[Rfam]
Nucleotides: 080
Base pairs, nucleotide, nucleotide: 002079003078004077005076006075008073009072011070012069013068014067015066016065017064018063019062020061021060022059023058025056026055027054028053029052032051033050034049035048036043037042
Number, partner (000 for none) and nucleotide at each position: 001000u002079g003078g004077u005076u006075u007000g008073u009072c010000u011070u012069u013068c014067a015066a016065a017064g018063c019062a020061a021060u022059u023058a024000g025056c026055a027054c028053a029052a030000u031000u032051u033050g034049u035048a036043u037042a038000c039000a040000u041000a042037u043036a044000u045000u046000u047000a048035u049034a050033u051032a052029u053028u054027g055026u056025g057000c058023u059022a060021a061020u062019u063018g064017c065016u066015u067014u068013g069012a070011a071000a072009g073008a074000c075006a076005a077004a078003c079002c080000a
Rfam assigns this 80-nucleotide RNA from Physeter macrocephalus to the family "mir-2763 microRNA precursor family". Rfam links the family to the GO terms miRNA-mediated post-transcriptional gene silencing and RISC complex. The family's consensus secondary structure was predicted with RNAalifold.